[Rfam]
A member of the RNA family "TPP riboswitch aptamer (THI element)" from Siccirubricoccus deserti, 108 nucleotides long.
RNA sequence: ACGGACACCUGGGGGAGCCCCUGCAAUGGGGCUGAGAGGCGGCGCAGCCGCGACCCCUGGAACCUGAUCCGGUUAGGACCGGCGAAGGGAGCGGUGCCAGCUGCGGCC
Numbered sequence: 001a002c003g004g005a006c007a008c009c010u011g012g013g014g015g016a017g018c019c020c021c022u023g024c025a026a027u028g029g030g031g032c033u034g035a036g037a038g039g040c041g042g043c044g045c046a047g048c049c050g051c052g053a054c055c056c057c058u059g060g061a062a063c064c065u066g067a068u069c070c071g072g073u074u075a076g077g078a079c080c081g082g083c084g085a086a087g088g089g090a091g092c093g094g095u096g097c098c099a100g101c102u103g104c105g106g107c108c
Stems, first nucleotide, its partner, number of pairs: 006096004011057004017032005039051005063088003069082004